Nucleotides: 094
Stems, first nucleotide, its partner, number of pairs: 001093002004090002009084006016077010029066011040054002
Number, partner (000 for none) and nucleotide at each position: 001093c002092u003000c004090c005089a006000u007000a008000u009084c010083u011082c012081a013080a014079u015000c016077u017076c018075u019074u020073u021072g022071g023070u024069u025068g026000u027000a028000c029066a030065a031064a032063g033062u034061g035060g036059u037058a038057u039056g040054g041053c042000u043000c044000a045000u046000c047000g048000a049000a050000u051000a052000a053041g054040c055000a056039c057038a058037u059036a060035c061034u062033g063032c064031u065030u066029u067000u068025c069024a070023g071022c072021u073020a074019a075018a076017g077016g078000a079014a080013u081012u082011g083010a084009g085000a086000u087000u088000u089005u090004g091000u092002a093001g094000g